[Rfam]
RNA: SAH (S-adenosyl-L-homocysteine) riboswitch aptamer
RNA sequence: GUCCCUGAGGGGCGCUGCAGCAGGUUGCCAAUUUCACUCUCCUGUCAGGCUCAGGGUACAACUCAAAUUUAACCCUCAACGGCGCUCGCUAAAU
Numbered sequence: 001g002u003c004c005c006u007g008a009g010g011g012g013c014g015c016u017g018c019a020g021c022a023g024g025u026u027g028c029c030a031a032u033u034u035c036a037c038u039c040u041c042c043u044g045u046c047a048g049g050c051u052c053a054g055g056g057u058a059c060a061a062c063u064c065a066a067a068u069u070u071a072a073c074c075c076u077c078a079a080c081g082g083c084g085c086u087c088g089c090u091a092a093a094u
Stems, first nucleotide, its partner, number of pairs: 003056006021044004